[Rfam]
RNA sequence: UCCAUCGCAAGGUGGAAUCUGAAGGAAGCCUACGGCAAAGUUCUGCCCCGAGGAAUACGAACAGUAUAAGGCGCAAAACGUGGGGUAAGACUGCUACACAAGUCAAAGCCCAAAAGCUACACGGACACGUUAGCGUAGAUAUUGCGGGUACAUGGAAUGAAAGUGAAUCGUC
Numbered sequence: 001u002c003c004a005u006c007g008c009a010a011g012g013u014g015g016a017a018u019c020u021g022a023a024g025g026a027a028g029c030c031u032a033c034g035g036c037a038a039a040g041u042u043c044u045g046c047c048c049c050g051a052g053g054a055a056u057a058c059g060a061a062c063a064g065u066a067u068a069a070g071g072c073g074c075a076a077a078a079c080g081u082g083g084g085g086u087a088a089g090a091c092u093g094c095u096a097c098a099c100a101a102g103u104c105a106a107a108g109c110c111c112a113a114a115a116g117c118u119a120c121a122c123g124g125a126c127a128c129g130u131u132a133g134c135g136u137a138g139a140u141a142u143u144g145c146g147g148g149u150a151c152a153u154g155g156a157a158u159g160a161a162a163g164u165g166a167a168u169c170g171u172c
Stems, first nucleotide, its partner, number of pairs: 001016006028172001030170001032168001035164002040158006047148004062144005071136003077131006083111004089104004
A member of the RNA family "Group II catalytic intron D1-D4-3" from Desulfosporosinus youngiae, 172 nucleotides long. A search with the family's covariance model found it, with a score of 131 bits. Rfam describes the family as follows. Group II introns are found in rRNA, tRNA and mRNA of organelles in fungi, plants and protists, and also in mRNA in bacteria. The source organism's lineage runs through Bacteria, Clostridia, Eubacteriales, Desulfitobacteriaceae and Desulfosporosinus youngiae. The pairing is the family consensus, mapped onto this sequence.